MIR2593 microRNA precursor family: a 115-nucleotide RNA sequence from Trifolium pratense. Its family is annotated with RISC complex and miRNA-mediated post-transcriptional gene silencing in the Gene Ontology. The base pairs follow the family's consensus structure, which was predicted with RNAalifold. A search with the family's covariance model found it, with a score of 102 bits.
RNA sequence: AUAUAAGAGAAUAUUUGUUUUUUAGAUUCAUUGGGUUUCUAAUGUAUUUGGUCUAUAUUAUAGGCUAGAUACAUUAGAAACUCAAUGAAUCUAAAAAACAAACUUUCUCUUAUAU
Numbered sequence: 001a002u003a004u005a006a007g008a009g010a011a012u013a014u015u016u017g018u019u020u021u022u023u024a025g026a027u028u029c030a031u032u033g034g035g036u037u038u039c040u041a042a043u044g045u046a047u048u049u050g051g052u053c054u055a056u057a058u059u060a061u062a063g064g065c066u067a068g069a070u071a072c073a074u075u076a077g078a079a080a081c082u083c084a085a086u087g088a089a090u091c092u093a094a095a096a097a098a099c100a101a102a103c104u105u106u107c108u109c110u111u112a113u114a115u
Base pairs, nucleotide, nucleotide: 002114003113004112005111006110007109009107010106011105015101016100017099018098019097020096021095022094023093024092025091027089028088029087030086031085032084033083034082035081036080037079038078039077040076041075042074043073044072049067050066051065052064